The family of this 130-nucleotide RNA from Streptomyces sp. ISL-12 is "Streptomyces RNA 5676".
Identified by deep sequencing of transcriptome at the end of exponential growth phase. Appears longer on northern blot than sequencing transcript. This indicates processing step. Streptomyces specific.
NCBI's taxonomy places the organism under Bacteria, Bacillati, Actinomycetota, Streptomycetaceae, Streptomyces.

RNA sequence: AGAUGAGAGAUACACCCCGCCCACAGGGAACUGUGGGUGACCCCAGGCCGGGGCCUCCCCAGCUGCGGCCUGGUCGUGCCCUCGCGCACACAAACGGAGCCUUUGGCUUCGGAUCUCCUCACCGAUCGGA
Number, nucleotide and partner (000 for none) at each position: 001a000002g000003a000004u121005g120006a119007g118008a000009g117010a116011u000012a000013c000014a000015c000016c000017c000018c039019g038020c037021c036022c035023a034024c033025a032026g031027g000028g000029a000030a000031c026032u025033g024034u023035g022036g021037g020038u019039g018040a000041c000042c000043c073044c072045a071046g070047g069048c000049c067050g066051g000052g064053g063054c062055c000056u000057c000058c000059c000060c000061a000062g054063c053064u052065g000066c050067g049068g000069c047070c046071u045072g044073g043074u000075c000076g089077u088078g087079c086080c000081c000082u000083c000084g000085c000086g079087c078088a077089c076090a000091c000092a000093a000094a000095c111096g110097g109098a108099g107100c106101c105102u000103u000104u000105g101106g100107c099108u098109u097110c096111g095112g000113a000114u000115c000116u010117c009118c007119u006120c005121a004122c129123c128124g000125a000126u000127c000128g123129g122130a000